[Rfam]
RNA sequence: UGUGCCGGGGGGGGCAGGCCUUGUGGCCGAGCUAACCCUAAUGGCGGCAACGCCCCUCACUCACGCCCACUGUUUUACUCGCUGACUUUCAGUCGGGCAGAGGGCGCGGCUUAGGAGAAGCAAGAGGGGGAUGGGGGAAAAAUAUUUCCGGCCUCAAAAAAAGCCAGCGAGGGGCAUCCACACCCCGGCCCACCCUGGGGUCCCAGUCUCUCCGCACCCAGGCAUGGGUCCAGCCCUCGCCCCUCGUGGAGGCCGCGGUCGGCAGGCCCAGCGCCCCUGCCGCCGCGAAGAGUUCGGCUCUGUCAGCCUCGGCGGUGGCCGGGAUCAGAGGGCAAGCCCACCUACCCUGGGCAGCCGGGGGACCCCAGCAGAGUAAAACGGGUGCGGCGCCGCGGGGCGCUGAGCCGCCGCGGUUCCCAAAGGAGUGGGAGUACGCGGUCGGUGCCGCCCCGACACAU
Numbered sequence: 001u002g003u004g005c006c007g008g009g010g011g012g013g014g015c016a017g018g019c020c021u022u023g024u025g026g027c028c029g030a031g032c033u034a035a036c037c038c039u040a041a042u043g044g045c046g047g048c049a050a051c052g053c054c055c056c057u058c059a060c061u062c063a064c065g066c067c068c069a070c071u072g073u074u075u076u077a078c079u080c081g082c083u084g085a086c087u088u089u090c091a092g093u094c095g096g097g098c099a100g101a102g103g104g105c106g107c108g109g110c111u112u113a114g115g116a117g118a119a120g121c122a123a124g125a126g127g128g129g130g131a132u133g134g135g136g137g138a139a140a141a142a143u144a145u146u147u148c149c150g151g152c153c154u155c156a157a158a159a160a161a162a163g164c165c166a167g168c169g170a171g172g173g174g175c176a177u178c179c180a181c182a183c184c185c186c187g188g189c190c191c192a193c194c195c196u197g198g199g200g201u202c203c204c205a206g207u208c209u210c211u212c213c214g215c216a217c218c219c220a221g222g223c224a225u226g227g228g229u230c231c232a233g234c235c236c237u238c239g240c241c242c243c244u245c246g247u248g249g250a251g252g253c254c255g256c257g258g259u260c261g262g263c264a265g266g267c268c269c270a271g272c273g274c275c276c277c278u279g280c281c282g283c284c285g286c287g288a289a290g291a292g293u294u295c296g297g298c299u300c301u302g303u304c305a306g307c308c309u310c311g312g313c314g315g316u317g318g319c320c321g322g323g324a325u326c327a328g329a330g331g332g333c334a335a336g337c338c339c340a341c342c343u344a345c346c347c348u349g350g351g352c353a354g355c356c357g358g359g360g361g362a363c364c365c366c367a368g369c370a371g372a373g374u375a376a377a378a379c380g381g382g383u384g385c386g387g388c389g390c391c392g393c394g395g396g397g398c399g400c401u402g403a404g405c406c407g408c409c410g411c412g413g414u415u416c417c418c419a420a421a422g423g424a425g426u427g428g429g430a431g432u433a434c435g436c437g438g439u440c441g442g443u444g445c446c447g448c449c450c451c452g453a454c455a456c457a458u
Base pairs, nucleotide, nucleotide: 001188004185008181010179011178012177014175019173020172054104055103056102057101058100065098066097067096068095069093070092071091072090081168082167083166084165086163087161088160089159195368196367197366198365199364200363201362227337228333229332230331231330235323236322237321239319240318241317254287255286256285257284258283260282261281262280263279265275266274267273289301290300291299292298382450384448385447386446387445388444389443390442391441408438409437410436411435412434415430416429417428418427

The family of this 458-nucleotide RNA from Brachypodius melanocephalos is "Vertebrate telomerase RNA". The source organism's lineage runs through Eukaryota, Deuterostomia, Chordata, Archelosauria and Brachypodius. The family's RNA type in Rfam is non-coding RNA gene. It scores 143 bits against the family's covariance model.